[Rfam]
The record is a 71-nucleotide RNA from Natranaerobius trueperi, which matches "Group II catalytic intron D1-D4-1" in Rfam. The base pairs follow the family's consensus structure. The source organism's lineage runs through Bacteria, Bacillati, Bacillota, Natranaerobiaceae and Natranaerobius.

RNA sequence: CAAAUCGUGCGGUGAUGCACGGUUGAACCGUAAGAAGUCAGCAGAGGUUAUAUUACCCGAAAUGGAAGGGC
Numbered sequence: 001c002a003a004a005u006c007g008u009g010c011g012g013u014g015a016u017g018c019a020c021g022g023u024u025g026a027a028c029c030g031u032a033a034g035a036a037g038u039c040a041g042c043a044g045a046g047g048u049u050a051u052a053u054u055a056c057c058c059g060a061a062a063u064g065g066a067a068g069g070g071c
Stems, first nucleotide, its partner, number of pairs: 001025002004023008038045002047071003056064001